Rfam assigns this 172-nucleotide RNA sequence from Hahella chejuensis to the family "Group II catalytic intron D1-D4-3". Lineage of the source: Bacteria > Pseudomonadati > Gammaproteobacteria > Oceanospirillales > Hahella chejuensis. A reference for the family is Bonen and Vogel (2001), "The ins and outs of group II introns", Trends Genet. Rfam's curators put it in the seed alignment. The pairing is the family consensus, mapped onto this sequence.
[Rfam]
RNA sequence: UUCACCGCGAGGUGAAAUCUGAAGGAAACCGAAGGCAAACCACUGGCCCGACGAACAGGAAUCGCAUAGGAGGCGGCCAUAGCGGGUGAGGUAGCCCAUACUGCCAAAGCCCAAUACUUACACGGAAGCGAUGGACGUAAAUGCGGCGGGUAUAAGUGGGAAGGUCACGCGC
Numbered sequence: 001u002u003c004a005c006c007g008c009g010a011g012g013u014g015a016a017a018u019c020u021g022a023a024g025g026a027a028a029c030c031g032a033a034g035g036c037a038a039a040c041c042a043c044u045g046g047c048c049c050g051a052c053g054a055a056c057a058g059g060a061a062u063c064g065c066a067u068a069g070g071a072g073g074c075g076g077c078c079a080u081a082g083c084g085g086g087u088g089a090g091g092u093a094g095c096c097c098a099u100a101c102u103g104c105c106a107a108a109g110c111c112c113a114a115u116a117c118u119u120a121c122a123c124g125g126a127a128g129c130g131a132u133g134g135a136c137g138u139a140a141a142u143g144c145g146g147c148g149g150g151u152a153u154a155a156g157u158g159g160g161a162a163g164g165u166c167a168c169g170c171g172c
Stems, first nucleotide, its partner, number of pairs: 001016006029171001035165002040159005046151005062146006073138003077134004082129002084112004090105004